[Rfam]
RNA sequence: AGAGGCCCUUCGUGGCCAGGGUGGAACACUUGCCUUGUCACUGCGGCGACAAAGCAAGCUUUCCGCCAGGCCGCUCACUCUGCCCAC
Numbered sequence: 001a002g003a004g005g006c007c008c009u010u011c012g013u014g015g016c017c018a019g020g021g022u023g024g025a026a027c028a029c030u031u032g033c034c035u036u037g038u039c040a041c042u043g044c045g046g047c048g049a050c051a052a053a054g055c056a057a058g059c060u061u062u063c064c065g066c067c068a069g070g071c072c073g074c075u076c077a078c079u080c081u082g083c084c085c086a087c
Stems, first nucleotide, its partner, number of pairs: 004084003012074006020067007029058005037050003041046001